[Rfam]
RNA sequence: GCCGGGCGCGGUGGCGCGUGCCUGUAAUCCCAGCUGCCGGGGAGGCUGAGCCCGACGGAUCGCUUGAGCCCAGGAGUUCUGGGCUGCCGUGCGCUGUGCCGAGCGGGCGUCCAAGCUAAGGCCGGCAUCGAUAUGGUGGCCCUGGGGGAGCCGGGGGCCACCAGGUCGCCUAAGGAGGGGUGAACCGGCCCAGGUCGGAGACGGAGCAGGUCAAAGCUCCCGUGGCGGUCAGUAGCGGGACCGCGCCUGUGAACAGAGCCUGCAGCGCAGCCCGGGUGACAGGACGGGACCCAGCCUCUU
Numbered sequence: 001g002c003c004g005g006g007c008g009c010g011g012u013g014g015c016g017c018g019u020g021c022c023u024g025u026a027a028u029c030c031c032a033g034c035u036g037c038c039g040g041g042g043a044g045g046c047u048g049a050g051c052c053c054g055a056c057g058g059a060u061c062g063c064u065u066g067a068g069c070c071c072a073g074g075a076g077u078u079c080u081g082g083g084c085u086g087c088c089g090u091g092c093g094c095u096g097u098g099c100c101g102a103g104c105g106g107g108c109g110u111c112c113a114a115g116c117u118a119a120g121g122c123c124g125g126c127a128u129c130g131a132u133a134u135g136g137u138g139g140c141c142c143u144g145g146g147g148g149a150g151c152c153g154g155g156g157g158c159c160a161c162c163a164g165g166u167c168g169c170c171u172a173a174g175g176a177g178g179g180g181u182g183a184a185c186c187g188g189c190c191c192a193g194g195u196c197g198g199a200g201a202c203g204g205a206g207c208a209g210g211u212c213a214a215a216g217c218u219c220c221c222g223u224g225g226c227g228g229u230c231a232g233u234a235g236c237g238g239g240a241c242c243g244c245g246c247c248u249g250u251g252a253a254c255a256g257a258g259c260c261u262g263c264a265g266c267g268c269a270g271c272c273c274g275g276g277u278g279a280c281a282g283g284a285c286g287g288g289a290c291c292c293a294g295c296c297u298c299u300u
Stems, first nucleotide, its partner, number of pairs: 001046003004023007028043003048298003052294001054292001060287003064283002068277004073272002079270003083266004088262002091259002094256004099251001103250008111239002115236004120230005126224003129168004134163010145152002169175002177220005187212004195204003
Dot-bracket structure: ((((((((((......)))))))....(((..........)))))).(((.(.(.....(((.((..((((.((....(((.((((.((.((.((((.(...((((((((((..((((.(((((.(((((((.((((((((((.((....)).)))))))))).))))((...)).(((((.....((((....(((....)))....))))...))))).))).)))))..)))).))...))))))))).)))).)).)))))).))))).))))....)).)))....).).)))..
This 300-nucleotide RNA sequence from Geospiza fortis belongs to the Rfam family "Metazoan signal recognition particle RNA".
About the family: The signal recognition particle (SRP) is a universally conserved ribonucleoprotein.
The family has 91 seed sequences and 383,523 matches in Rfam 15.1.
It scores 212 bits against the family's covariance model.
On this family, see Wild et al., Curr Opin Struct Biol 2002: "Towards the structure of the mammalian signal recognition particle".
Its family is annotated with signal recognition particle, endoplasmic reticulum targeting and SRP-dependent cotranslational protein targeting to membrane, signal sequence recognition in the Gene Ontology.